[Rfam]
RNA sequence: GAGGGCAAGGGCGUCGCUGCGAGGCGACGAACAGAAACCACAUAGAGGAGGCCUAGGACGCCAGACGAGCCGGCACUGGAUGGCGAAGUCUGAUGGUACAGCGUCUAGGGUAGAUGUGGCGUUUGUGCACCGACAGUUCACGUU
Numbered sequence: 001g002a003g004g005g006c007a008a009g010g011g012c013g014u015c016g017c018u019g020c021g022a023g024g025c026g027a028c029g030a031a032c033a034g035a036a037a038c039c040a041c042a043u044a045g046a047g048g049a050g051g052c053c054u055a056g057g058a059c060g061c062c063a064g065a066c067g068a069g070c071c072g073g074c075a076c077u078g079g080a081u082g083g084c085g086a087a088g089u090c091u092g093a094u095g096g097u098a099c100a101g102c103g104u105c106u107a108g109g110g111u112a113g114a115u116g117u118g119g120c121g122u123u124u125g126u127g128c129a130c131c132g133a134c135a136g137u138u139c140a141c142g143u144u
Stems, first nucleotide, its partner, number of pairs: 004144003011137002016131001018129004022124005038119006051111003056106006063091004069084004